[Rfam]
RNA: Mammalian CPEB3 ribozyme
RNA sequence: AGAGGUUAAAAGUUUGAGGCCACAGCAGAAGUGCUCGCAGUGAGGCCCGUCAGAUUCCAACAAAUCUGUGAAUUAUGCU
Numbered sequence: 001a002g003a004g005g006u007u008a009a010a011a012g013u014u015u016g017a018g019g020c021c022a023c024a025g026c027a028g029a030a031g032u033g034c035u036c037g038c039a040g041u042g043a044g045g046c047c048c049g050u051c052a053g054a055u056u057c058c059a060a061c062a063a064a065u066c067u068g069u070g071a072a073u074u075a076u077g078c079u
Base pairs, nucleotide, nucleotide: 018047019046020045021044024079025078026077027076029074030073032042033041051068052067053066054065055064056063